MIR7486 microRNA precursor family: an 81-nucleotide RNA sequence from Gossypium arboreum. The source organism's lineage runs through Eukaryota, Mesangiospermae, eudicotyledons, rosids and Gossypium. Gene Ontology terms of the family: RISC complex and miRNA-mediated post-transcriptional gene silencing. The family has 9 seed sequences and 10,132 matches in Rfam 15.1.
RNA sequence: GAAGCGCUUUGCCUACGUGGACAGAAAGCGCGCCCUCAAGGAAGCGUUUUCUGUCCACGUAGGCAAAGCGCUUCAUUGAGG
Numbered sequence: 001g002a003a004g005c006g007c008u009u010u011g012c013c014u015a016c017g018u019g020g021a022c023a024g025a026a027a028g029c030g031c032g033c034c035c036u037c038a039a040g041g042a043a044g045c046g047u048u049u050u051c052u053g054u055c056c057a058c059g060u061a062g063g064c065a066a067a068g069c070g071c072u073u074c075a076u077u078g079a080g081g
Stems, first nucleotide, its partner, number of pairs: 001074015017058015034041002
Dot-bracket structure: (((((((((((((((.(((((((((((((((..((....))..))))))))))))))).))))))))))))))).......